[Rfam]
RNA: pemK RNA
Organism: Nothobranchius furzeri
RNA sequence: AUAAUGAUACUUUUGUAAAGCAAACCACCCUAUAACCCAGUGGUGGUUGAAAAACCAAAGA
Numbered sequence: 001a002u003a004a005u006g007a008u009a010c011u012u013u014u015g016u017a018a019a020g021c022a023a024a025c026c027a028c029c030c031u032a033u034a035a036c037c038c039a040g041u042g043g044u045g046g047u048u049g050a051a052a053a054a055c056c057a058a059a060g061a
Stems, first nucleotide, its partner, number of pairs: 012058001013023004025043003044057003